RNA sequence: CUCUGGUUCAGGAAAUGAGUCAGGGCGGAAGGAG
Numbered sequence: 001c002u003c004u005g006g007u008u009c010a011g012g013a014a015a016u017g018a019g020u021c022a023g024g025g026c027g028g029a030a031g032g033a034g
Stems, first nucleotide, its partner, number of pairs: 001025010
Background:
The family of this 34-nucleotide RNA sequence from Bacillus testis is "L31-Firmicutes ribosomal protein leader". By type it is a cis-regulatory leader. It is one of the family's seed sequences.